RNA sequence: CAACAAGCCGAGCAUACAUCAGUUGCAAGCGUCGGAAAGUUUAGUCUGAUUA
Numbered sequence: 001c002a003a004c005a006a007g008c009c010g011a012g013c014a015u016a017c018a019u020c021a022g023u024u025g026c027a028a029g030c031g032u033c034g035g036a037a038a039g040u041u042u043a044g045u046c047u048g049a050u051u052a
Stems, first nucleotide, its partner, number of pairs: 002040001008035002012030002018050005
The family of this 52-nucleotide RNA is "Exoribonuclease-resistant RNA (xrRNA) plant-infecting virus (class 3)". A reference for the family is Steckelberg et al. (2020), "The crystal structure of a Polerovirus exoribonuclease-resistant RNA shows how diverse sequences are integrated into a conserved fold", RNA. Rfam classes the family as a cis-regulatory element. Its family is annotated with viral RNA genome replication in the Gene Ontology. Rfam's curators write: Exoribonuclease-resistant RNA (xrRNA) plant-infecting virus (class 3) is a ncRNA that was reported in Plant viruses.